[Rfam]
RNA: Zeta-pan RNA
RNA sequence: CAUCCUGAAAGACGGUACCCAAGCUGUUCACGCAGCCGGACCGAAGCGGAAAGGAAGAUAUG
Numbered sequence: 001c002a003u004c005c006u007g008a009a010a011g012a013c014g015g016u017a018c019c020c021a022a023g024c025u026g027u028u029c030a031c032g033c034a035g036c037c038g039g040a041c042c043g044a045a046g047c048g049g050a051a052a053g054g055a056a057g058a059u060a061u062g
Stems, first nucleotide, its partner, number of pairs: 013043004018039002